[Rfam]
RNA sequence: CAUUUAUAGUUUCAGACAUGGAAUCGCCGAUAUCGGCGGUAGACGUAAAGCCUAAGCGGA
Numbered sequence: 001c002a003u004u005u006a007u008a009g010u011u012u013c014a015g016a017c018a019u020g021g022a023a024u025c026g027c028c029g030a031u032a033u034c035g036g037c038g039g040u041a042g043a044c045g046u047a048a049a050g051c052c053u054a055a056g057c058g059g060a
Stems, first nucleotide, its partner, number of pairs: 023040007
RNA: porB RNA